[Rfam]
RNA sequence: UAUUGAAUUGCAGGGCAAUUCUCCUUUGGCAGAAAGCAUAUCCAGUGGUAGUACUCAAGAGUAAAUGCACCAGAAUCAUUUCUGCCAAAGGAGAUUUGCACUGUUAUUCAUCC
Numbered sequence: 001u002a003u004u005g006a007a008u009u010g011c012a013g014g015g016c017a018a019u020u021c022u023c024c025u026u027u028g029g030c031a032g033a034a035a036g037c038a039u040a041u042c043c044a045g046u047g048g049u050a051g052u053a054c055u056c057a058a059g060a061g062u063a064a065a066u067g068c069a070c071c072a073g074a075a076u077c078a079u080u081u082c083u084g085c086c087a088a089a090g091g092a093g094a095u096u097u098g099c100a101c102u103g104u105u106a107u108u109c110a111u112c113c
Stems, first nucleotide, its partner, number of pairs: 005109004011103003015099004021093004027087009
mir-399 microRNA precursor family: a 113-nucleotide RNA sequence from Malus domestica.
A search with the family's covariance model found it, with a score of 70 bits.
Rfam links the family to the GO terms miRNA-mediated post-transcriptional gene silencing and RISC complex.
The family's consensus secondary structure was predicted with PFOLD.
Rfam's curators write: mir-399 was identified in both Arabidopsis thaliana and Oryza sativa computationally and was later experimentally verified. mir-399 is thought to target mRNAs coding for a phosphatase transporter. The mature sequence is excised from the 3' arm of the hairpin.